[Rfam]
Nucleotides: 068
Base pairs, nucleotide, nucleotide: 004063005062006061008059011030012029013028016026017025035056037054038053040052041051044048
Number, partner (000 for none) and nucleotide at each position: 001000a002000g003000g004063c005062c006061g007000a008059c009000c010000g011030g012029g013028u014000c015000g016026a017025c018000g019000c020000c021000g022000c023000g024000g025017g026016u027000g028013a029012c030011c031000a032000u033000c034000a035056g036000a037054u038053a039000g040052u041051c042000c043000c044048g045000c046000a047000u048044c049000a050000c051041g052040a053038u054037g055000c056035u057000g058000u059008g060000c061006c062005g063004g064000c065000c066000c067000u068000c
The record is a 68-nucleotide RNA from Candidatus Protofrankia datiscae, which matches "ASdes TB sRNA" in Rfam. The source organism's lineage runs through Bacteria, Actinomycetota, Actinomycetes, Frankiaceae and Protofrankia. On this family, see Arnvig and Young, Mol Microbiol 2009: "Identification of small RNAs in Mycobacterium tuberculosis".